[Rfam]
RNA: Eukaryotic large subunit ribosomal RNA, nucleotides 953 to 1445
Organism: Gossypium laxum
RNA sequence: CCCUCUGAAGUUUCCCUCAGGAUAGCUAGAGCCCUUCACGAGUUCUGUCAGGUAAAGCCAAGGAUUAGAGGCAUCGAGGGCGCAACACCCUCGACCUAUUCUCAAACUGUAAAUAGGUAAGAUGGUGCGGCUACUUCAUUGAGCCACGCCACGGAAUUGAGAGCUCAAAGUGGGCCAUUUUUGGUAAGUAGAAAUGACGAUGCAGGAUGAACCAAAAGCCAGGUUACGGUGCCUAACUACGCGCUAACCUAUAACGCACAAAGGGUGUUAGUCGAUAAAGACAGCAAGACAGUGGUCAUGGAAGUUGAAAUCCGCUAAGGAAUGUGUAACAACUCACCUGUCGAAUCAACUAGCCUCAAAAAUAGAUAGAGCUUAUGCGUACGACCUAUACCUGGUCGUCGGGGUAAGGGCCAGGCACCGAUGAAUAGUAGGGUGUGGUGGUCACUACAAAACCUUAGGAGCGAGCCCGAGUGAAGCGGCCAUCAGUGUAGAU
Numbered sequence: 001c002c003c004u005c006u007g008a009a010g011u012u013u014c015c016c017u018c019a020g021g022a023u024a025g026c027u028a029g030a031g032c033c034c035u036u037c038a039c040g041a042g043u044u045c046u047g048u049c050a051g052g053u054a055a056a057g058c059c060a061a062g063g064a065u066u067a068g069a070g071g072c073a074u075c076g077a078g079g080g081c082g083c084a085a086c087a088c089c090c091u092c093g094a095c096c097u098a099u100u101c102u103c104a105a106a107c108u109g110u111a112a113a114u115a116g117g118u119a120a121g122a123u124g125g126u127g128c129g130g131c132u133a134c135u136u137c138a139u140u141g142a143g144c145c146a147c148g149c150c151a152c153g154g155a156a157u158u159g160a161g162a163g164c165u166c167a168a169a170g171u172g173g174g175c176c177a178u179u180u181u182u183g184g185u186a187a188g189u190a191g192a193a194a195u196g197a198c199g200a201u202g203c204a205g206g207a208u209g210a211a212c213c214a215a216a217a218g219c220c221a222g223g224u225u226a227c228g229g230u231g232c233c234u235a236a237c238u239a240c241g242c243g244c245u246a247a248c249c250u251a252u253a254a255c256g257c258a259c260a261a262a263g264g265g266u267g268u269u270a271g272u273c274g275a276u277a278a279a280g281a282c283a284g285c286a287a288g289a290c291a292g293u294g295g296u297c298a299u300g301g302a303a304g305u306u307g308a309a310a311u312c313c314g315c316u317a318a319g320g321a322a323u324g325u326g327u328a329a330c331a332a333c334u335c336a337c338c339u340g341u342c343g344a345a346u347c348a349a350c351u352a353g354c355c356u357c358a359a360a361a362a363u364a365g366a367u368a369g370a371g372c373u374u375a376u377g378c379g380u381a382c383g384a385c386c387u388a389u390a391c392c393u394g395g396u397c398g399u400c401g402g403g404g405u406a407a408g409g410g411c412c413a414g415g416c417a418c419c420g421a422u423g424a425a426u427a428g429u430a431g432g433g434u435g436u437g438g439u440g441g442u443c444a445c446u447a448c449a450a451a452a453c454c455u456u457a458g459g460a461g462c463g464a465g466c467c468c469g470a471g472u473g474a475a476g477c478g479g480c481c482a483u484c485a486g487u488g489u490a491g492a493u
Stems, first nucleotide, its partner, number of pairs: 001433004006428001011024001013022003027168001029166004043122002046119004055110001056108002063103002067099001069097003074094006124150004129145004174198001176196008205212001218396005224390001228386003237383001242379003263357003267354006274347003284341003288337001290314001292312001296308002315319001320335001324333002397423006404416002434488001436485008445476001452472002458467002